[Rfam]
RNA sequence: AACCCACCUCACUCACUCGGAUCGUCCGGCACGUUCCUGCCGGUGGAGGGAUUCAUUA
Numbered sequence: 001a002a003c004c005c006a007c008c009u010c011a012c013u014c015a016c017u018c019g020g021a022u023c024g025u026c027c028g029g030c031a032c033g034u035u036c037c038u039g040c041c042g043g044u045g046g047a048g049g050g051a052u053u054c055a056u057u058a
Stems, first nucleotide, its partner, number of pairs: 009050002013046003026043006

msiK RNA: a 58-nucleotide RNA sequence from Rhodococcus oxybenzonivorans. The family's consensus secondary structure is taken from published work. It scores 46 bits against the family's covariance model. The organism belongs to Rhodococcus, within Bacteria.